The family of this 87-nucleotide RNA from Massilia sp. Dwa41.01b is "Glycine riboswitch aptamer". The organism belongs to Massilia, within Bacteria.

RNA sequence: CAGUCUUGAUCGGGAGAGCGCAGCGACAUGCUGCCGCCGAAGGGGCAUCACCCAAAAACUCUCAGGCAAAAGGACCGUUCAAGGGCC
Numbered sequence: 001c002a003g004u005c006u007u008g009a010u011c012g013g014g015a016g017a018g019c020g021c022a023g024c025g026a027c028a029u030g031c032u033g034c035c036g037c038c039g040a041a042g043g044g045g046c047a048u049c050a051c052c053c054a055a056a057a058a059c060u061c062u063c064a065g066g067c068a069a070a071a072g073g074a075c076c077g078u079u080c081a082a083g084g085g086c087c
Stems, first nucleotide, its partner, number of pairs: 006082004011077003020034004036067003039063002043061003